This 45-nucleotide RNA sequence from Caproicibacter fermentans belongs to the Rfam family "PreQ1 (pre queuosine) riboswitch aptamer". Rfam's curators write: This family is a bacterial riboswitch that binds to the metabolite preQ1, an intermediate in the biosynthesis of the modified nucleoside queuosine from GTP. One example of this riboswitch is located in the leader of the Bacillus subtilis ykvJKLM (queCDEF) operon which encodes four genes necessary for queuosine production. The pairing is the family consensus, mapped onto this sequence. Gene Ontology term of the family: queuosine biosynthetic process. For this family Rfam cites "Identification of four genes necessary for biosynthesis of the modified nucleoside queuosine" (Reader et al., J Biol Chem, 2004).
RNA sequence: CCCGCACUGGUUCGAGAACCUCCCAGUAUAAAAAACUAAGGAUUG
Numbered sequence: 001c002c003c004g005c006a007c008u009g010g011u012u013c014g015a016g017a018a019c020c021u022c023c024c025a026g027u028a029u030a031a032a033a034a035a036c037u038a039a040g041g042a043u044u045g
Base pairs, nucleotide, nucleotide: 006027007026008025009024010023016037